RNA sequence: CGACGCGCGACGGGAGAGCCUUCCUCCGUGAACCAGCGGCAGGAGGCGCCGUAGGAGCAACGCCUCCCCAGGAAUCUCUCAGGCCCAGAUACCGUCGCGACGAG
Number, nucleotide and partner (000 for none) at each position: 001c000002g000003a000004c000005g000006c099007g098008c097009g096010a095011c094012g093013g092014g000015a000016g000017a000018g000019c000020c046021u045022u044023c043024c042025u041026c000027c000028g000029u000030g000031a000032a000033c000034c000035a000036g000037c000038g000039g000040c000041a025042g024043g023044a022045g021046g020047c000048g084049c083050c082051g080052u000053a000054g000055g078056a077057g076058c000059a000060a000061c071062g000063c000064c000065u000066c000067c000068c000069c000070a000071g061072g000073a000074a000075u000076c057077u056078c055079u000080c051081a000082g050083g049084c048085c000086c000087a000088g000089a000090u000091a000092c013093c012094g011095u010096c009097g008098c007099g006100a000101c000102g000103a000104g000
Notes
Shown here is a 104-nucleotide RNA from Kineosporia babensis, a member of the family "Glycine riboswitch aptamer". The source organism's lineage runs through Bacteria, Actinomycetota, Kineosporiales, Kineosporiaceae and Kineosporia. A search with the family's covariance model found it, with a score of 58 bits. Clan: Glycine riboswitch clan.